This 89-nucleotide RNA from Shimia sp. SK013 belongs to the Rfam family "Rhodo-rpoB RNA". Rfam classes the family as a cis-regulatory element. The match comes from Rfam's covariance-model search (61 bits).
RNA sequence: AGAUCGAGAGGCUCCGGUGGGACGGAGCCGAGAAUGGAUCUGAUUCACGCCGUCACUGACGCGACGUGCCGGGGCCCGACGGCAAGUUG
Dot-bracket structure: (((((....(((((((......))))))).......)))))....................((((.(((((........))))).))))
Numbered sequence: 001a002g003a004u005c006g007a008g009a010g011g012c013u014c015c016g017g018u019g020g021g022a023c024g025g026a027g028c029c030g031a032g033a034a035u036g037g038a039u040c041u042g043a044u045u046c047a048c049g050c051c052g053u054c055a056c057u058g059a060c061g062c063g064a065c066g067u068g069c070c071g072g073g074g075c076c077c078g079a080c081g082g083c084a085a086g087u088u089g
Stems, first nucleotide, its partner, number of pairs: 001041005010029007062089004067084005